Lysine riboswitch aptamer: a 186-nucleotide RNA from Melghirimyces thermohalophilus.
The literature on the family includes a 2003 paper in Cell by Mandal et al., "Riboswitches Control Fundamental Biochemical Pathways in Bacillus subtilis and Other Bacteria".
Taxonomically the source falls in Melghirimyces (Bacteria, Bacillati, Bacillota, Caryophanales).
[Rfam]
RNA sequence: GUGUGAACUAGAGGAGCGGGUGAUCAUCAGUACCUGUCGCGAGGGGGCGGCAACCGGGGACCGGCAGGGAAAGGGGGACUCGCCGAAGUUUUCCAUCCCGCCGCGGGGUGGAAAGCUGGGACCGGGCCGAACAGGACCGGGACUGUCACAAAUCCUUGUCUGGAUUUGUGGAGCACUACGUGUCAC
Numbered sequence: 001g002u003g004u005g006a007a008c009u010a011g012a013g014g015a016g017c018g019g020g021u022g023a024u025c026a027u028c029a030g031u032a033c034c035u036g037u038c039g040c041g042a043g044g045g046g047g048c049g050g051c052a053a054c055c056g057g058g059g060a061c062c063g064g065c066a067g068g069g070a071a072a073g074g075g076g077g078a079c080u081c082g083c084c085g086a087a088g089u090u091u092u093c094c095a096u097c098c099c100g101c102c103g104c105g106g107g108g109u110g111g112a113a114a115g116c117u118g119g120g121a122c123c124g125g126g127c128c129g130a131a132c133a134g135g136a137c138c139g140g141g142a143c144u145g146u147c148a149c150a151a152a153u154c155c156u157u158g159u160c161u162g163g164a165u166u167u168g169u170g171g172a173g174c175a176c177u178a179c180g181u182g183u184c185a186c
Stems, first nucleotide, its partner, number of pairs: 006181001009178003016083006024076002033068007087117012118144002122140004127135002146171009